Manganese Mn2+ riboswitch aptamer (yybP-ykoY): a 177-nucleotide sequence from Thermomonas carbonis. This RNA was originally discovered in E. coli during a large scale screen and was named SraF. The family was later found to exist upstream of related families of protein genes in many bacteria, including the the yybP and ykoK genes in B. subtilis. The specific functions of these proteins are unknown, but this structured RNA element may be involved in their genetic regulation as a riboswitch. The match comes from Rfam's covariance-model search (72 bits). Pairs were carried over by alignment from the consensus structure.

RNA sequence: ACUGCGAGCGUCUUUGGGGAGUAGCCUCUCGCCGCCCCGGCGAGGCCCGCGUCAACAUGCUUGGCCUCAAUCGGCCAUGGCGCGUGCGAUCCCGCAUCUGGCAAGACCAUCGACCACGAUCCCUCCUGAAGGCCGGGGGAGCGUCGUGGUCAUGUGUCCAUCCCGGCCAGGUCAUUC
Numbered sequence: 001a002c003u004g005c006g007a008g009c010g011u012c013u014u015u016g017g018g019g020a021g022u023a024g025c026c027u028c029u030c031g032c033c034g035c036c037c038c039g040g041c042g043a044g045g046c047c048c049g050c051g052u053c054a055a056c057a058u059g060c061u062u063g064g065c066c067u068c069a070a071u072c073g074g075c076c077a078u079g080g081c082g083c084g085u086g087c088g089a090u091c092c093c094g095c096a097u098c099u100g101g102c103a104a105g106a107c108c109a110u111c112g113a114c115c116a117c118g119a120u121c122c123c124u125c126c127u128g129a130a131g132g133c134c135g136g137g138g139g140a141g142c143g144u145c146g147u148g149g150u151c152a153u154g155u156g157u158c159c160a161u162c163c164c165g166g167c168c169a170g171g172u173c174a175u176u177c
Stems, first nucleotide, its partner, number of pairs: 029043003045087002048084007062077005088176003091171002